[Rfam]
Shown here is a 104-nucleotide sequence from Rhododendron simsii, a member of the family "Small nucleolar RNA snoR100". The base pairs follow the family's consensus structure, which was predicted with WAR. The family's RNA type in Rfam is H/ACA-box small nucleolar RNA. The literature on the family includes a 2002 paper in Curr Biol by Marker et al., "Experimental RNomics: identification of 140 candidates for small non-messenger RNAs in the plant Arabidopsis thaliana".
RNA sequence: UAAUGGAGGAAGCUUGGUAAUGUGCACAGAAGUUGAUUUGGAUCUCUAGGUUUGCCCUCUCUAAUGCCUUUCGGCUGUGAUUUGGGGCAUGGUUCCCUUUAGCU
Dot-bracket structure: ...........((.(......).))..............(..((.....(((.(((................)))...)))....))..)..............
Numbered sequence: 001u002a003a004u005g006g007a008g009g010a011a012g013c014u015u016g017g018u019a020a021u022g023u024g025c026a027c028a029g030a031a032g033u034u035g036a037u038u039u040g041g042a043u044c045u046c047u048a049g050g051u052u053u054g055c056c057c058u059c060u061c062u063a064a065u066g067c068c069u070u071u072c073g074g075c076u077g078u079g080a081u082u083u084g085g086g087g088c089a090u091g092g093u094u095c096c097c098u099u100u101a102g103c104u
Stems, first nucleotide, its partner, number of pairs: 012025002015022001040090001043087002050081003054075003

The organism belongs to Rhododendron, within Eukaryota.